[Rfam]
This 86-nucleotide RNA sequence from a Desulfobacteraceae bacterium belongs to the Rfam family "c-di-GMP-I riboswitch aptamer". Pairs were carried over by alignment from the consensus structure, which is taken from published work. A search with the family's covariance model found it, with a score of 85 bits.
RNA sequence: CCAACGAAAGGGCAAAACUGUCGAAAGGCAGUGACGCAAAGCCACGGGUCAAAAGCUCCAAGGGCCAUGAUAGCCGGGCUACCGAA
Numbered sequence: 001c002c003a004a005c006g007a008a009a010g011g012g013c014a015a016a017a018c019u020g021u022c023g024a025a026a027g028g029c030a031g032u033g034a035c036g037c038a039a040a041g042c043c044a045c046g047g048g049u050c051a052a053a054a055g056c057u058c059c060a061a062g063g064g065c066c067a068u069g070a071u072a073g074c075c076g077g078g079c080u081a082c083c084g085a086a
Stems, first nucleotide, its partner, number of pairs: 012037002017032006040080004045076003048071003055065004